The family of this 54-nucleotide sequence from Cottoperca gobio is "UnaL2 LINE 3' element". It scores 57 bits against the family's covariance model. The family's consensus secondary structure is taken from published work. For this family Rfam cites "Solution structure of an RNA stem-loop derived from the 3' conserved region of eel LINE UnaL2" (Baba et al., RNA, 2004). NCBI's taxonomy places the organism under Eukaryota, Actinopterygii, Osteoglossocephalai, Ctenosquamata, Cottoperca.
[Rfam]
RNA sequence: CCAGGGCAGGACUGUAAGUCUCUCUGGAUAAGAGCGUCUGCUAAAUGACCUGUA
Numbered sequence: 001c002c003a004g005g006g007c008a009g010g011a012c013u014g015u016a017a018g019u020c021u022c023u024c025u026g027g028a029u030a031a032g033a034g035c036g037u038c039u040g041c042u043a044a045a046u047g048a049c050c051u052g053u054a
Base pairs, nucleotide, nucleotide: 013043014041015040016039020036022034023033024032025031